[Rfam]
RNA: Small nucleolar RNA Z103
RNA sequence: AUGGAUGUGAGGAUCCUUUCCCCAAAUGAUCGACAAAGAUUAUACUAUGCACAAAUGUAAUCCCAUCAGGAUUCCAAGCCAGAAAUCUGAUCCAU
Numbered sequence: 001a002u003g004g005a006u007g008u009g010a011g012g013a014u015c016c017u018u019u020c021c022c023c024a025a026a027u028g029a030u031c032g033a034c035a036a037a038g039a040u041u042a043u044a045c046u047a048u049g050c051a052c053a054a055a056u057g058u059a060a061u062c063c064c065a066u067c068a069g070g071a072u073u074c075c076a077a078g079c080c081a082g083a084a085a086u087c088u089g090a091u092c093c094a095u
Base pairs, nucleotide, nucleotide: 001095002094003093004092005091